[Rfam]
RNA sequence: AGAAAAGCAGUGCUUUGUUGCCUUUUGUGAACUAGGCCCUCGUAGACGUCAGGGAAAUUAUUUUCAUUGUUAUUGGGUGAACCUCUGUUAUUUGCUUUGACUGUUGGUUCAGUAAAUGAUGAAACAAUA
Numbered sequence: 001a002g003a004a005a006a007g008c009a010g011u012g013c014u015u016u017g018u019u020g021c022c023u024u025u026u027g028u029g030a031a032c033u034a035g036g037c038c039c040u041c042g043u044a045g046a047c048g049u050c051a052g053g054g055a056a057a058u059u060a061u062u063u064u065c066a067u068u069g070u071u072a073u074u075g076g077g078u079g080a081a082c083c084u085c086u087g088u089u090a091u092u093u094g095c096u097u098u099g100a101c102u103g104u105u106g107g108u109u110c111a112g113u114a115a116a117u118g119a120u121g122a123a124a125c126a127a128u129a
Stems, first nucleotide, its partner, number of pairs: 005049001007047001012037001014035002017032001063123009078111006
RNA: Small nucleolar RNA snoR74